Notes
The record is an 80-nucleotide RNA sequence from Columba livia, which matches "Z6 small nucleolar RNA" in Rfam. For this family Rfam cites "Purified box C/D snoRNPs are able to reproduce site-specific 2'-O-methylation of target RNA in vitro" (Galardi et al., Mol Cell Biol, 2002). Taxonomically the source falls in Columba (Eukaryota, Dinosauria, Columbimorphae, Columbidae). By type it is a C/D-box small nucleolar RNA. Gene Ontology terms of the family: nucleolus and RNA processing.
RNA sequence: UUCUGGCUUUGAAGUUCACGAGCACUGGGGCUUGGAGGGACGUGGGGACCCACAGAGAUGCAACCUGGGCAGGUGAAGGA
Numbered sequence: 001u002u003c004u005g006g007c008u009u010u011g012a013a014g015u016u017c018a019c020g021a022g023c024a025c026u027g028g029g030g031c032u033u034g035g036a037g038g039g040a041c042g043u044g045g046g047g048a049c050c051c052a053c054a055g056a057g058a059u060g061c062a063a064c065c066u067g068g069g070c071a072g073g074u075g076a077a078g079g080a
Base pairs, nucleotide, nucleotide: 001080002079003078004077